[Rfam]
RNA sequence: CUUUAAAAAUCCGGAACAAGCUGAAAAUUGAAACACUGAACAACGCAAGUUGUUCGUGAGUCUCUCAAAUACUUGCAACACGAAAUGUGUUCAGUCAGCGG
Numbered sequence: 001c002u003u004u005a006a007a008a009a010u011c012c013g014g015a016a017c018a019a020g021c022u023g024a025a026a027a028u029u030g031a032a033a034c035a036c037u038g039a040a041c042a043a044c045g046c047a048a049g050u051u052g053u054u055c056g057u058g059a060g061u062c063u064c065u066c067a068a069a070u071a072c073u074u075g076c077a078a079c080a081c082g083a084a085a086u087g088u089g090u091u092c093a094g095u096c097a098g099c100g101g
Stems, first nucleotide, its partner, number of pairs: 020076002023074002027070003034058003038055007081100002
Dot-bracket structure: ...................((.((..(((....(((.(((((((....)))))))))).........)))..))))....((................)).
Salmonella enterica Typhi npcRNA 44: a 101-nucleotide RNA sequence from Mangrovibacter sp. MFB070. The source organism's lineage runs through Bacteria, Pseudomonadati, Gammaproteobacteria, Enterobacterales and Mangrovibacter. For this family Rfam cites "Experimental identification and characterization of 97 novel npcRNA candidates in Salmonella enterica serovar Typhi" (Chinni et al., Nucleic Acids Res, 2010). It scores 85 bits against the family's covariance model. Rfam classes the family as a non-coding RNA gene.